[Rfam]
The record is a 133-nucleotide RNA from Jaculus jaculus, which matches "Small nucleolar RNA SNORA33" in Rfam.
About the family: ACA33 is a member of the H/ACA class of snoRNA that guide the sites of modification of uridines to pseudouridines.
RNA sequence: AAGCCAGCUAAUUAAUUGGUCUGCUUGUCUGAAUGUGUUUCUGCAGAAAUGUUGAGAGCUGGCAAUAGUGAUGCCAUGUCACAAGCCUUAAGGACAGUUGAGGUCGUUAAGGUCCCUGAAAAUGGCUACAAUA
Numbered sequence: 001a002a003g004c005c006a007g008c009u010a011a012u013u014a015a016u017u018g019g020u021c022u023g024c025u026u027g028u029c030u031g032a033a034u035g036u037g038u039u040u041c042u043g044c045a046g047a048a049a050u051g052u053u054g055a056g057a058g059c060u061g062g063c064a065a066u067a068g069u070g071a072u073g074c075c076a077u078g079u080c081a082c083a084a085g086c087c088u089u090a091a092g093g094a095c096a097g098u099u100g101a102g103g104u105c106g107u108u109a110a111g112g113u114c115c116c117u118g119a120a121a122a123u124g125g126c127u128a129c130a131a132u133a
Stems, first nucleotide, its partner, number of pairs: 003063005020047005073126004085113007093105003
Dot-bracket structure: ..(((((............(((((..................)))))...........))))).........((((........(((((((.(((.......))).))))))).........)))).......

Rfam 15.1 lists 1,176 matches to the family in 522 species. Lineage of the source: Eukaryota > Deuterostomia > Eutheria > Euarchontoglires > Jaculus. The match comes from Rfam's covariance-model search (118 bits).